Rfam assigns this 213-nucleotide sequence from Microvirga makkahensis to the family "permuted transfer-messenger RNA". Rfam classes the family as a non-coding RNA gene. Rfam links the family to the GO term RNA catabolic process. Bacterial tmRNA, also known as 10Sa RNA or SsrA, is named for its dual tRNA and mRNA-like properties. Its role is to liberate the mRNA from a stalled ribosome. To accomplish this part of the tmRNA is used as a reading frame that ends in a translation stop signal. The broken mRNA is replaced in the ribosome by the tmRNA and translation of the tmRNA leads to addition of a proteolysis tag to the incomplete protein enabling recognition by a protease.
[Rfam]
RNA sequence: GGCGAUAAACGGCUAUCGGAAUAAACCCAUCGGACCCGGGGGCGGUACCCGGCGCCUCCACCAAAGCCCAGGCUGAUCCUGGGUUUCGGCGGGGGCGAAAUAGGAUCGACGAGGGCGUAAAGGAUAGACUUUCGCUCGGCAUGGUUCCGCCGAUAUCGGGCCGAUUCAAUAGUUGCCAACGACAACUAUGCUCCGGUUGCGGUGGCUGCGUAA
Numbered sequence: 001g002g003c004g005a006u007a008a009a010c011g012g013c014u015a016u017c018g019g020a021a022u023a024a025a026c027c028c029a030u031c032g033g034a035c036c037c038g039g040g041g042g043c044g045g046u047a048c049c050c051g052g053c054g055c056c057u058c059c060a061c062c063a064a065a066g067c068c069c070a071g072g073c074u075g076a077u078c079c080u081g082g083g084u085u086u087c088g089g090c091g092g093g094g095g096c097g098a099a100a101u102a103g104g105a106u107c108g109a110c111g112a113g114g115g116c117g118u119a120a121a122g123g124a125u126a127g128a129c130u131u132u133c134g135c136u137c138g139g140c141a142u143g144g145u146u147c148c149g150c151c152g153a154u155a156u157c158g159g160g161c162c163g164a165u166u167c168a169a170u171a172g173u174u175g176c177c178a179a180c181g182a183c184a185a186c187u188a189u190g191c192u193c194c195g196g197u198u199g200c201g202g203u204g205g206c207u208g209c210g211u212a213a
Stems, first nucleotide, its partner, number of pairs: 001136005014126004026115003030112003036052005053097007137152004